RNA: terC RNA
RNA sequence: UGGCAGUUCCGGGCCCCUCUGACGCGAGUGCCGGAUACCCGUGAUGUCGGAACUGCGAU
Dot-bracket structure: .....(((((((.........(((.(.((.....)).).)))....)))))))......
Numbered sequence: 001u002g003g004c005a006g007u008u009c010c011g012g013g014c015c016c017c018u019c020u021g022a023c024g025c026g027a028g029u030g031c032c033g034g035a036u037a038c039c040c041g042u043g044a045u046g047u048c049g050g051a052a053c054u055g056c057g058a059u
Stems, first nucleotide, its partner, number of pairs: 006053007022042003026038001028036002